RNA sequence: AUGCGAAUAUUCUCGCUGCCCUGAUCCUCCCAUGGUCAGGGCAGGCUAGACAUUCGCUAUAUUAACACUAUGCAUUGUGUCCUCCAGGACUAGGCUGCAGUUCUAGUACUGGCUUUGUAAAUGCUAGUGACAGGU
Numbered sequence: 001a002u003g004c005g006a007a008u009a010u011u012c013u014c015g016c017u018g019c020c021c022u023g024a025u026c027c028u029c030c031c032a033u034g035g036u037c038a039g040g041g042c043a044g045g046c047u048a049g050a051c052a053u054u055c056g057c058u059a060u061a062u063u064a065a066c067a068c069u070a071u072g073c074a075u076u077g078u079g080u081c082c083u084c085c086a087g088g089a090c091u092a093g094g095c096u097g098c099a100g101u102u103c104u105a106g107u108a109c110u111g112g113c114u115u116u117g118u119a120a121a122u123g124c125u126a127g128u129g130a131c132a133g134g135u
Stems, first nucleotide, its partner, number of pairs: 003057003016044011067128004072124002084112004089107005
Small nucleolar RNA SNORA72: a 135-nucleotide sequence from Colius striatus. By type it is an H/ACA-box small nucleolar RNA. Rfam describes the family as follows. U72 is a member of the H/ACA class of snoRNAs. The snoRNA gene is located in intron 4 of the ribosomal L30 protein gene in human, mouse and chicken. NCBI's taxonomy places the organism under Eukaryota, Craniata, Sauropsida, Telluraves, Colius.